Rfam assigns this 100-nucleotide RNA sequence to the family "L4-Archaeoglobi ribosomal protein leades". On this family, see Eckert and Weinberg, BMC Microbiol 2020: "Discovery of 20 novel ribosomal leader candidates in bacteria and archaea".

[Rfam]
RNA sequence: CUGAUCGGCGCGUCCGGGUCAAUUGCGGACUGCAACACCCGAUCUCCCUCGCCGUUCCUCCCGACAGGGAGGUACGCGAGGGAGAGCGCGUGACAAUCAG
Numbered sequence: 001c002u003g004a005u006c007g008g009c010g011c012g013u014c015c016g017g018g019u020c021a022a023u024u025g026c027g028g029a030c031u032g033c034a035a036c037a038c039c040c041g042a043u044c045u046c047c048c049u050c051g052c053c054g055u056u057c058c059u060c061c062c063g064a065c066a067g068g069g070a071g072g073u074a075c076g077c078g079a080g081g082g083a084g085a086g087c088g089c090g091u092g093a094c095a096a097u098c099a100g
Base pairs, nucleotide, nucleotide: 001100002099003098004097005096008091009090010089011088012087013086015041016040017039018038023035024034025033026032027031043085044084045083046082047081048080049079050078051077053076054075055074